Description:
The record is an 86-nucleotide RNA from Pseudomonas sp. M30-35, which matches "gyrA RNA" in Rfam. The family's RNA type in Rfam is cis-regulatory element.

RNA sequence: UCGUGAGUCGUUGUCGACUUGAUGUUACAGCGACAGGCUUCGCCUCGUUCACAACGGAUGGAGCGGAGUUUCACCAGAAAAAGGAA
Numbered sequence: 001u002c003g004u005g006a007g008u009c010g011u012u013g014u015c016g017a018c019u020u021g022a023u024g025u026u027a028c029a030g031c032g033a034c035a036g037g038c039u040u041c042g043c044c045u046c047g048u049u050c051a052c053a054a055c056g057g058a059u060g061g062a063g064c065g066g067a068g069u070u071u072c073a074c075c076a077g078a079a080a081a082a083g084g085a086a
Stems, first nucleotide, its partner, number of pairs: 007034008017025002035071009045061006
The base pairs follow the family's consensus structure, which is taken from published work.